[Rfam]
RNA sequence: UCCCUGCUUUCCAUCAGCGGGGGUUACUGAAGAGGCACACCUUCAUUGCCGGAAGUGCGGUUGGGAUUCUCCCUCCAAUCCAUGGCAGACAAAGCCGGAUCCAUGUCGCUUAAGCGGCGUUGAUUCAUCAUUCGCGCGAUCCAAGCGCUUGCUAA
Numbered sequence: 001u002c003c004c005u006g007c008u009u010u011c012c013a014u015c016a017g018c019g020g021g022g023g024u025u026a027c028u029g030a031a032g033a034g035g036c037a038c039a040c041c042u043u044c045a046u047u048g049c050c051g052g053a054a055g056u057g058c059g060g061u062u063g064g065g066a067u068u069c070u071c072c073c074u075c076c077a078a079u080c081c082a083u084g085g086c087a088g089a090c091a092a093a094g095c096c097g098g099a100u101c102c103a104u105g106u107c108g109c110u111u112a113a114g115c116g117g118c119g120u121u122g123a124u125u126c127a128u129c130a131u132u133c134g135c136g137c138g139a140u141c142c143a144a145g146c147g148c149u150u151g152c153u154a155a
Base pairs, nucleotide, nucleotide: 001023002022003021004020005019006018007017008016034050035049036048037047057148058147059146084096085095
RNA: speF leader
Organism: Rhizobium tibeticum